[Rfam]
RNA sequence: GUGCUGUGAUGAAGAUCUAAUUUUGUGUACCAGAGAUCGGUCUCUUAUGAGAUCGUCCGUGUUGGCAGCACAACCCUCUAAGAAGUUCUGAGCAC
Numbered sequence: 001g002u003g004c005u006g007u008g009a010u011g012a013a014g015a016u017c018u019a020a021u022u023u024u025g026u027g028u029a030c031c032a033g034a035g036a037u038c039g040g041u042c043u044c045u046u047a048u049g050a051g052a053u054c055g056u057c058c059g060u061g062u063u064g065g066c067a068g069c070a071c072a073a074c075c076c077u078c079u080a081a082g083a084a085g086u087u088c089u090g091a092g093c094a095c
Stems, first nucleotide, its partner, number of pairs: 001095004
RNA: Small nucleolar RNA U61
Organism: Nyssa sinensis